Background:
Rfam assigns this 212-nucleotide part of an RNA from Pleurostoma richardsiae to the family "Ascomycota telomerase RNA". Lineage of the source: Eukaryota > Opisthokonta > Ascomycota > sordariomyceta > Pleurostoma. The base pairs follow the family's consensus structure. Clan: Telomerase clan. A reference for the family is Qi et al. (2013), "The common ancestral core of vertebrate and fungal telomerase RNAs", Nucleic Acids Res. It scores 492 bits against the family's covariance model. The family's RNA type in Rfam is non-coding RNA gene.
Nucleotides: 212
Base pairs, nucleotide, nucleotide: 009194010193011192015190016189017188018187
Number, partner (000 for none) and nucleotide at each position: 001000u002000c003000c004000c005000c006000c007000a008000c009194a010193g011192u012000u013000c014000u015190c016189c017188g018187a019000c020000u021000c022000c023000u024000g025000u026000u027000u028000u029000c030000c031000g032000c033000a034000a035000g036000g037000a038000a039000u040000g041000c042000c043000u044000u045000c046000u047000c048000g049000g050000c051000c052000u053000c054000u055000c056000a057000a058000c059000a060000g061000c062000u063000g064000c065000u066000g067000g068000a069000g070000u071000g072000u073000c074000a075000c076000a077000a078000u079000a080000c081000g082000u083000c084000g085000c086000a087000g088000c089000u090000c091000g092000c093000a094000c095000c096000u097000g098000u099000a100000u101000c102000a103000g104000g105000a106000a107000c108000c109000g110000c111000g112000a113000c114000g115000c116000u117000u118000g119000c120000c121000g122000c123000g124000c125000a126000u127000g128000g129000a130000a131000u132000a133000u134000u135000g136000u137000g138000c139000c140000a141000c142000a143000g144000u145000u146000g147000u148000c149000a150000g151000c152000a153000a154000c155000u156000g157000c158000a159000c160000a161000a162000a163000c164000c165000a166000g167000c168000c169000c170000c171000g172000c173000u174000g175000a176000g177000a178000g179000a180000a181000u182000g183000g184000g185000u186000a187018u188017c189016g190015g191000a192011a193010c194009u195000u196000a197000a198000c199000c200000c201000u202000a203000a204000g205000u206000u207000a208000c209000u210000c211000g212000u